[Rfam]
Notes
A member of the RNA family "SAM-Chlorobi RNA" from Chlorobium phaeobacteroides, 84 nucleotides long. The sequence is in the family's curated seed alignment.
RNA sequence: CGGCAUCCCCAUUACCUAUGGACACGGUGCCCCGGACUCAGAAAUAACUUUUUGAGUCUUCCGGGAAAGAUUUUCCGUGUCCAG
Numbered sequence: 001c002g003g004c005a006u007c008c009c010c011a012u013u014a015c016c017u018a019u020g021g022a023c024a025c026g027g028u029g030c031c032c033c034g035g036a037c038u039c040a041g042a043a044a045u046a047a048c049u050u051u052u053u054g055a056g057u058c059u060u061c062c063g064g065g066a067a068a069g070a071u072u073u074u075c076c077g078u079g080u081c082c083a084g
Stems, first nucleotide, its partner, number of pairs: 002031006009021004034059011
By type it is a cis-regulatory element. The source organism's lineage runs through Bacteria, Chlorobiota, Chlorobiia, Chlorobium and Chlorobium phaeobacteroides.